[Rfam]
RNA sequence: GAAACCUCAUCUUGCAAGCGCCAUCCGGGCGCCAGAGCAGUAGCAGUGUUUUUUAUAAAACACGGACAUUCCGUCCGGGUGAGGAGAAAGA
Numbered sequence: 001g002a003a004a005c006c007u008c009a010u011c012u013u014g015c016a017a018g019c020g021c022c023a024u025c026c027g028g029g030c031g032c033c034a035g036a037g038c039a040g041u042a043g044c045a046g047u048g049u050u051u052u053u054u055a056u057a058a059a060a061c062a063c064g065g066a067c068a069u070u071c072c073g074u075c076c077g078g079g080u081g082a083g084g085a086g087a088a089a090g091a
Stems, first nucleotide, its partner, number of pairs: 005084008015043001018032005046063007064076004
About this RNA:
Rfam assigns this 91-nucleotide RNA to the family "RAGATH-10 RNA". For this family Rfam cites "New classes of self-cleaving ribozymes revealed by comparative genomics analysis" (Weinberg et al., Nat Chem Biol, 2015).